[Rfam]
RNA sequence: GACGGGGAUAGGGCGACGGCCCGAACCGUGGUUUCCCGACCGCUUUCCCCGCUGUUUUCAAUUCGGG
Dot-bracket structure: (.((((((..((((....)))).....((((..[[[.[[))))..)))))).)........]].]]]
Numbered sequence: 001g002a003c004g005g006g007g008a009u010a011g012g013g014c015g016a017c018g019g020c021c022c023g024a025a026c027c028g029u030g031g032u033u034u035c036c037c038g039a040c041c042g043c044u045u046u047c048c049c050c051g052c053u054g055u056u057u058u059c060a061a062u063u064c065g066g067g
Stems, first nucleotide, its partner, number of pairs: 001053001003051006011022004028043004034067003038063002